Rfam assigns this 151-nucleotide RNA sequence from Loigolactobacillus rennini to the family "Ribosomal protein L10 leader". Rfam classes the family as a cis-regulatory leader. Taxonomically the source falls in Loigolactobacillus rennini (Bacteria, Bacillati, Bacilli, Lactobacillales). Rfam's curators write: This family is a putative r-protein leader autoregulatory structure found in B. subtilis and other low-GC Gram-positive bacteria. It is located in the 5' untranslated regions of mRNAs encoding ribosomal proteins L10 and L12 (rplJ-rplL). It scores 55 bits against the family's covariance model. Gene Ontology term of the family: regulation of gene expression.
[Rfam]
RNA sequence: UAUGCGGUUAUAUUUCUACCUAAGACUCAGGUGACGUUAGUCUCAAAUGUUUCGCAUUAGUGGAACGGCCCGCCGAGGUGAAAGUUUGUCCGAAUGAAACAGACUCUCAGCGGCGUUGUGUCUUUAGGCAUAACGCUUUUUAUUAGGAGAA
Numbered sequence: 001u002a003u004g005c006g007g008u009u010a011u012a013u014u015u016c017u018a019c020c021u022a023a024g025a026c027u028c029a030g031g032u033g034a035c036g037u038u039a040g041u042c043u044c045a046a047a048u049g050u051u052u053c054g055c056a057u058u059a060g061u062g063g064a065a066c067g068g069c070c071c072g073c074c075g076a077g078g079u080g081a082a083a084g085u086u087u088g089u090c091c092g093a094a095u096g097a098a099a100c101a102g103a104c105u106c107u108c109a110g111c112g113g114c115g116u117u118g119u120g121u122c123u124u125u126a127g128g129c130a131u132a133a134c135g136c137u138u139u140u141u142a143u144u145a146g147g148a149g150a151a
Stems, first nucleotide, its partner, number of pairs: 028072001030070003033042003113136010